[Rfam]
RNA sequence: UUGGGCUACGGGGAUAUGUACCCCCAAACGUGGUCGGGGAUGCUGGUGGGAGCCCUGUGUGCCCUGGCUGGGGUGCUGACGAUAGCCAUGCCUGUGCCGGUCAUCGUCAACAAC
Numbered sequence: 001u002u003g004g005g006c007u008a009c010g011g012g013g014a015u016a017u018g019u020a021c022c023c024c025c026a027a028a029c030g031u032g033g034u035c036g037g038g039g040a041u042g043c044u045g046g047u048g049g050g051a052g053c054c055c056u057g058u059g060u061g062c063c064c065u066g067g068c069u070g071g072g073g074u075g076c077u078g079a080c081g082a083u084a085g086c087c088a089u090g091c092c093u094g095u096g097c098c099g100g101u102c103a104u105c106g107u108c109a110a111c112a113a114c
Stems, first nucleotide, its partner, number of pairs: 002113001004111001008107004013102003018097004037077002040074001049063002

Rfam assigns this 114-nucleotide RNA from Nyctereutes procyonoides to the family "Potassium channel RNA editing signal". Rfam classes the family as a cis-regulatory element. NCBI's taxonomy places the organism under Eukaryota, Bilateria, Amniota, Carnivora, Nyctereutes.